[Rfam]
RNA sequence: UGGAUGGUAUUCGUUAGCGAAACCAUACCGCGUGUAACUGACAGGUAUUGAGCUUAUAUCCUUUAGGAAUAAGACUCGGAG
Numbered sequence: 001u002g003g004a005u006g007g008u009a010u011u012c013g014u015u016a017g018c019g020a021a022a023c024c025a026u027a028c029c030g031c032g033u034g035u036a037a038c039u040g041a042c043a044g045g046u047a048u049u050g051a052g053c054u055u056a057u058a059u060c061c062u063u064u065a066g067g068a069a070u071a072a073g074a075c076u077c078g079g080a081g
Stems, first nucleotide, its partner, number of pairs: 001030003004026005010021002050077003053073005059068003

Rfam assigns this 81-nucleotide RNA from Eubacterium sp. CAG:146 to the family "pan motif". The family's RNA type in Rfam is cis-regulatory element. NCBI's taxonomy places the organism under Bacteria, Bacillati, Clostridia, Eubacteriales, Eubacterium. A search with the family's covariance model found it, with a score of 44 bits.